[Rfam]
RNA: Plastid-psbN 5UTR RNA
RNA sequence: AAAGACCGCCAUCAGAGGAGUUGUUCCCCAACCUGGAGCAACUUUCCCAUAUUCUGAGUUU
Numbered sequence: 001a002a003a004g005a006c007c008g009c010c011a012u013c014a015g016a017g018g019a020g021u022u023g024u025u026c027c028c029c030a031a032c033c034u035g036g037a038g039c040a041a042c043u044u045u046c047c048c049a050u051a052u053u054c055u056g057a058g059u060u061u
Base pairs, nucleotide, nucleotide: 017045018044019043020042021041022040023039024038025037026036027035